Annotation:
The record is a 193-nucleotide RNA from Triticum aestivum, which matches "U2 spliceosomal RNA" in Rfam. The family's consensus secondary structure is taken from published work. Rfam classes the family as a spliceosomal small nuclear RNA. U2 is a small nuclear RNA (snRNA) component of the spliceosome (involved in pre-mRNA splicing). The family is grouped with related families in Rfam's "U2 clan". Gene Ontology terms of the family: pre-mRNA branch point binding, mRNA branch site recognition and U2 snRNP.

[Rfam]
RNA sequence: AUACCUUUCUCGGCCUUCGGCUAAGAUCAAGUGCAGUAUCUGUUCUUAUCAGUUUAAUAUCUGAUACGUGGAUCUUUGAAUCCACACAUGAUAUUAAUUUAUUUAUUUAUGGGGAGAACCUAUUUAUGUAGCUUGCCACAUGAAUGGUUAUUAUGUGUUGGAACAGGCACACUCCGACCAAAAUAAAAUAAAA
Numbered sequence: 001a002u003a004c005c006u007u008u009c010u011c012g013g014c015c016u017u018c019g020g021c022u023a024a025g026a027u028c029a030a031g032u033g034c035a036g037u038a039u040c041u042g043u044u045c046u047u048a049u050c051a052g053u054u055u056a057a058u059a060u061c062u063g064a065u066a067c068g069u070g071g072a073u074c075u076u077u078g079a080a081u082c083c084a085c086a087c088a089u090g091a092u093a094u095u096a097a098u099u100u101a102u103u104u105a106u107u108u109a110u111g112g113g114g115a116g117a118a119c120c121u122a123u124u125u126a127u128g129u130a131g132c133u134u135g136c137c138a139c140a141u142g143a144a145u146g147g148u149u150a151u152u153a154u155g156u157g158u159u160g161g162a163a164c165a166g167g168c169a170c171a172c173u174c175c176g177a178c179c180a181a182a183a184u185a186a187a188a189u190a191a192a193a
Stems, first nucleotide, its partner, number of pairs: 008026003012022004047066006068085006074078001118148003123143002128139002131136001151186004156181001157178006